A member of the RNA family "Potassium channel RNA editing signal" from Rhinopomastus cyanomelas, 114 nucleotides long. The organism belongs to Rhinopomastus, within Eukaryota. By type it is a cis-regulatory element.
RNA sequence: GUGGGCUACGGGGACAUGGCCCCCGUGACGGUCGGGGGCAAGCUGGUGGGCUCCCUGUGCGCCAUCGCGGGGGUCCUCACCAUCUCCCUCCCCGUCCCCGUCAUCGUCUCCAAC
Numbered sequence: 001g002u003g004g005g006c007u008a009c010g011g012g013g014a015c016a017u018g019g020c021c022c023c024c025g026u027g028a029c030g031g032u033c034g035g036g037g038g039c040a041a042g043c044u045g046g047u048g049g050g051c052u053c054c055c056u057g058u059g060c061g062c063c064a065u066c067g068c069g070g071g072g073g074u075c076c077u078c079a080c081c082a083u084c085u086c087c088c089u090c091c092c093c094g095u096c097c098c099c100g101u102c103a104u105c106g107u108c109u110c111c112a113a114c
Stems, first nucleotide, its partner, number of pairs: 001114002004111002008107004013102003018097002021094001037077002040074001049063003
Dot-bracket structure: ((.((..((((.(((..((.(...............((.(........(((.........)))..........).))................).))..))).))))..)).))
Notes:
Rfam's curators write: This family represents a group of sequences related to the human potassium channel Kv1.1 hairpin element which directs the efficient modification of an adenosine to inosine by an adenosine deaminase acting on RNA (ADAR). For this family Rfam cites "Control of human potassium channel inactivation by editing of a small mRNA hairpin" (Bhalla et al., Nat Struct Mol Biol, 2004). The base pairs follow the family's consensus structure, which is taken from published work.